[Rfam]
RNA sequence: UUCUUAUCAAGAGAGAUUGAGGGACAGGCCCUAUGACAUCUCGGCAACGGUUUUUUGAAAACUACGUGCCAAUUCCUGCAAACAGAUUCCUGUUUGAAAGAUAAGAA
Numbered sequence: 001u002u003c004u005u006a007u008c009a010a011g012a013g014a015g016a017u018u019g020a021g022g023g024a025c026a027g028g029c030c031c032u033a034u035g036a037c038a039u040c041u042c043g044g045c046a047a048c049g050g051u052u053u054u055u056u057g058a059a060a061a062c063u064a065c066g067u068g069c070c071a072a073u074u075c076c077u078g079c080a081a082a083c084a085g086a087u088u089c090c091u092g093u094u095u096g097a098a099a100g101a102u103a104a105g106a107a
Stems, first nucleotide, its partner, number of pairs: 001107008013042005021031003025078004043070004048066002050062004074099001079096006
Dot-bracket structure: ((((((((....(((((...(((.[[[[)))......)))))((((.((((((.....))))..))))))...(]]]]((((((......))))))..)))))))))
Rfam assigns this 107-nucleotide RNA sequence from Sporosarcina luteola to the family "SAM riboswitch aptamer (S box leader)". The SAM riboswitch is found upstream of a number of genes which code for proteins involved in methionine or cysteine biosynthesis in Gram-positive bacteria. The base pairs follow the family's consensus structure, which is taken from published work. Lineage of the source: Bacteria > Bacillota > Bacilli > Caryophanaceae > Sporosarcina.